[Rfam]
RNA sequence: GAAUGACGGGUGAGAAACCCGUCCGCCGAAUAACCAAGGGUUCCAGGGUCAAGCUCAUCUGCCCUGGGUCAGCCGGGACCUAAGGCGAGGCCGACAGGCGUAGUCGAUGGACAACGGGUUGAUAUUCCCGUGGCCGGUGUAACAACGAUCCUGCCGAGGCGCGUGAUGCUAAGAACGGAAGCCUGUACCGAGCCUUCGGGUGAGGUGUGGGUGACUCUUCGAUCCGAUCGUGUAGUAGGCAAGCUGCGGAGGGACGCAGGAAGGUAGCCCAUCCCGGGUGGUGGUAGUCCCGGGCUAAGCCUGUAGGGCGGGGUGUAGGGAAAUCCGCACCCCAUGGAGCCUGAGAGGGGAUGGCUCUGCCACUUUGGUGGUGGAGUGGGUGAUCCUAUGCUGCCGAGAAAAGCUUCGUGAGCGAGUUGUGAGCCGCCCGUACCCUAAACCGACACAGGUGGUUAGGUAGAGAAUACCAAGGCGAU
Numbered sequence: 001g002a003a004u005g006a007c008g009g010g011u012g013a014g015a016a017a018c019c020c021g022u023c024c025g026c027c028g029a030a031u032a033a034c035c036a037a038g039g040g041u042u043c044c045a046g047g048g049u050c051a052a053g054c055u056c057a058u059c060u061g062c063c064c065u066g067g068g069u070c071a072g073c074c075g076g077g078a079c080c081u082a083a084g085g086c087g088a089g090g091c092c093g094a095c096a097g098g099c100g101u102a103g104u105c106g107a108u109g110g111a112c113a114a115c116g117g118g119u120u121g122a123u124a125u126u127c128c129c130g131u132g133g134c135c136g137g138u139g140u141a142a143c144a145a146c147g148a149u150c151c152u153g154c155c156g157a158g159g160c161g162c163g164u165g166a167u168g169c170u171a172a173g174a175a176c177g178g179a180a181g182c183c184u185g186u187a188c189c190g191a192g193c194c195u196u197c198g199g200g201u202g203a204g205g206u207g208u209g210g211g212u213g214a215c216u217c218u219u220c221g222a223u224c225c226g227a228u229c230g231u232g233u234a235g236u237a238g239g240c241a242a243g244c245u246g247c248g249g250a251g252g253g254a255c256g257c258a259g260g261a262a263g264g265u266a267g268c269c270c271a272u273c274c275c276g277g278g279u280g281g282u283g284g285u286a287g288u289c290c291c292g293g294g295c296u297a298a299g300c301c302u303g304u305a306g307g308g309c310g311g312g313g314u315g316u317a318g319g320g321a322a323a324u325c326c327g328c329a330c331c332c333c334a335u336g337g338a339g340c341c342u343g344a345g346a347g348g349g350g351a352u353g354g355c356u357c358u359g360c361c362a363c364u365u366u367g368g369u370g371g372u373g374g375a376g377u378g379g380g381u382g383a384u385c386c387u388a389u390g391c392u393g394c395c396g397a398g399a400a401a402a403g404c405u406u407c408g409u410g411a412g413c414g415a416g417u418u419g420u421g422a423g424c425c426g427c428c429c430g431u432a433c434c435c436u437a438a439a440c441c442g443a444c445a446c447a448g449g450u451g452g453u454u455a456g457g458u459a460g461a462g463a464a465u466a467c468c469a470a471g472g473c474g475a476u
Base pairs, nucleotide, nucleotide: 005023006022007021008020009019010018024474025473026472027471032454033453034452035451038434039433043067044066045065046064047063048062052060053059074430075429076428077427079110080109084105085104086103088101090099091098092097115221116220117219118218225426226425229423231421232420233419234418235417243413244412247408248407249406250405251404256394257393258392259391262387263386264385267381268380269379270378271377273294274293275292276291277290278289295354296353300348301347302346306342307341308340310333311332312331313330314329315328316327318326319325356374357373359372360371361370362369363368440449441448456468457467458466459465